The family of this 39-nucleotide RNA sequence from Rhinopithecus bieti is "U7 small nuclear RNA". Pairs were carried over by alignment from the consensus structure, which was predicted with PFOLD. Taxonomically the source falls in Rhinopithecus (Eukaryota, Craniata, Tetrapoda, Amniota). Animal histone pre-mRNAs are spliced by a different mechanism than nuclear pre-mRNAs and self-splicing introns.
Nucleotides: 039
Base pairs, nucleotide, nucleotide: 011036012035013034014033015032016031017030018029019028020027021026
Number, partner (000 for none) and nucleotide at each position: 001000u002000u003000g004000u005000c006000u007000a008000g009000c010000a011036g012035g013034c014033u015032u016031u017030c018029c019028a020027g021026u022000c023000u024000u025000c026021a027020c028019u029018g030017g031016a032015a033014a034013g035012c036011c037000c038000c039000u